The record is an 82-nucleotide sequence from Papaver somniferum, which matches "Small nucleolar RNA snoR14" in Rfam. The family has 7 seed sequences and 668 matches in Rfam 15.1. Pairs were carried over by alignment from the consensus structure. The family's RNA type in Rfam is C/D-box small nucleolar RNA. A reference for the family is Brown et al. (2001), "Multiple snoRNA gene clusters from Arabidopsis", RNA.
[Rfam]
RNA sequence: GCGAAAUGACGAUAAGAUUCACUGCUCAAUAAUUCACUGAAUUCUGUGAUGUUACUUUCGAAUCUCGACAGGUUCCGAUCGC
Number, nucleotide and partner (000 for none) at each position: 001g082002c081003g080004a079005a000006a000007u000008g000009a000010c000011g000012a000013u000014a000015a000016g000017a000018u000019u000020c000021a000022c000023u000024g000025c000026u000027c000028a000029a000030u000031a000032a000033u000034u000035c000036a000037c000038u000039g000040a000041a000042u000043u000044c000045u000046g000047u000048g000049a000050u000051g000052u000053u000054a000055c000056u000057u000058u000059c000060g000061a000062a000063u000064c000065u000066c000067g000068a000069c000070a000071g000072g000073u000074u000075c000076c000077g000078a000079u004080c003081g002082c001